[Rfam]
RNA sequence: UAAGCGGGCGAGAACCAUUUGAAUCAAGUAGUGUAGUGAUUCAAAUGGUUCUCUCA
Numbered sequence: 001u002a003a004g005c006g007g008g009c010g011a012g013a014a015c016c017a018u019u020u021g022a023a024u025c026a027a028g029u030a031g032u033g034u035a036g037u038g039a040u041u042c043a044a045a046u047g048g049u050u051c052u053c054u055c056a
Stems, first nucleotide, its partner, number of pairs: 008055001010053017

Plastid-ccsA-ndhD-1 3UTR RNA: a 56-nucleotide sequence from Clethra delavayi. Rfam's curators write: Plastid-ccsA-ndhD-1 is a non-coding RNA (ncRNA) recognised in plastids. It was found in the three prime untranslated region (3UTR) of ccsA and ndhD genes, its 3UTR location suggests a role in transcript maturation. By type it is a cis-regulatory element. The family has 488 seed sequences and 1,322 matches in Rfam 15.1. The source organism's lineage runs through Eukaryota, Streptophytina, Pentapetalae, Ericales and Clethra. The family's consensus secondary structure was predicted with LocARNA. For this family Rfam cites "Retrograde signaling in plants: A critical review focusing on the GUN pathway and beyond" (Richter et al., Plant Commun, 2023).